[Rfam]
RNA sequence: GAGGCGGCAGGCCAACGCCCGGCAGCGCGAUGCGCCCCCGGGCGCGUUUUGC
Numbered sequence: 001g002a003g004g005c006g007g008c009a010g011g012c013c014a015a016c017g018c019c020c021g022g023c024a025g026c027g028c029g030a031u032g033c034g035c036c037c038c039c040g041g042g043c044g045c046g047u048u049u050u051g052c
Stems, first nucleotide, its partner, number of pairs: 016044007025035004